[Rfam]
sul1 RNA: a 53-nucleotide RNA from Sandarakinorhabdus glacialis. The organism belongs to Sandarakinorhabdus, within Bacteria. By type it is a riboswitch.
RNA sequence: GAUGGACCCGUAUUACCGGGUGGCUUGGCCGGGCGCCUAUCCCUCGGAUAACC
Dot-bracket structure: .....(((((......))))).......(((((.........)))))......
Numbered sequence: 001g002a003u004g005g006a007c008c009c010g011u012a013u014u015a016c017c018g019g020g021u022g023g024c025u026u027g028g029c030c031g032g033g034c035g036c037c038u039a040u041c042c043c044u045c046g047g048a049u050a051a052c053c
Stems, first nucleotide, its partner, number of pairs: 006021005029047005